[Rfam]
RNA sequence: CUCACCUUCAUUACCUUACCAUCGGGUCUACACUCUUGGCGCGAUAACCAAGCGGUUAUCGAUUGUCCACAAUUCGACCUGAGGAAAGUCCCCGGACCUUCUGCAGAAAGUGCAACCGGCUUAACCGCUGAUCGAUUCCGCCCCAUUCGUUCGUACUUUACGGAGAUGACCGGGACCACGUUUCGACGGGAAACGUACUCGCGAUCCGUAGGACGGAUUGUGGGCGAACAAUCGACUGGUCCUAGAUAUACAGUAUGUAAAGGGAGGGCUACUCACGUGGCCCUUGACUUAAUGGGGCUUAUCAACGGAGGUGA
Numbered sequence: 001c002u003c004a005c006c007u008u009c010a011u012u013a014c015c016u017u018a019c020c021a022u023c024g025g026g027u028c029u030a031c032a033c034u035c036u037u038g039g040c041g042c043g044a045u046a047a048c049c050a051a052g053c054g055g056u057u058a059u060c061g062a063u064u065g066u067c068c069a070c071a072a073u074u075c076g077a078c079c080u081g082a083g084g085a086a087a088g089u090c091c092c093c094g095g096a097c098c099u100u101c102u103g104c105a106g107a108a109a110g111u112g113c114a115a116c117c118g119g120c121u122u123a124a125c126c127g128c129u130g131a132u133c134g135a136u137u138c139c140g141c142c143c144c145a146u147u148c149g150u151u152c153g154u155a156c157u158u159u160a161c162g163g164a165g166a167u168g169a170c171c172g173g174g175a176c177c178a179c180g181u182u183u184c185g186a187c188g189g190g191a192a193a194c195g196u197a198c199u200c201g202c203g204a205u206c207c208g209u210a211g212g213a214c215g216g217a218u219u220g221u222g223g224g225c226g227a228a229c230a231a232u233c234g235a236c237u238g239g240u241c242c243u244a245g246a247u248a249u250a251c252a253g254u255a256u257g258u259a260a261a262g263g264g265a266g267g268g269c270u271a272c273u274c275a276c277g278u279g280g281c282c283c284u285u286g287a288c289u290u291a292a293u294g295g296g297g298c299u300u301a302u303c304a305a306c307g308g309a310g311g312u313g314a
Base pairs, nucleotide, nucleotide: 002314003313004312005311006310007309008308009307011305014262016260017259018258019257022082023081024080025079026078027077028076047057049055086300087299088298090297091296092295093294102114103113104112105111115132117130118129119128120127134229136227140225141224142223143222149218150217151216152215161208162207163206164205264285265284266283267282268281269280270279271278
Dot-bracket structure: .((((((((.(..[.[[[[..(((((((..................(.(.....).)..................)))))))...(((.((((........((((.....))))(.((((......)))).).(.(...((((.....((((........((((........................................))))......))))...)))).).)...........................]]]].].((((((((......))))))))........)))))))....).))))))))
Overview: Rfam assigns this 314-nucleotide sequence from Aphis glycines to the family "RNase MRP". Rfam describes the family as follows. RNase MRP is an enzymatically active ribonucleoprotein with two distinct roles in eukaryotes.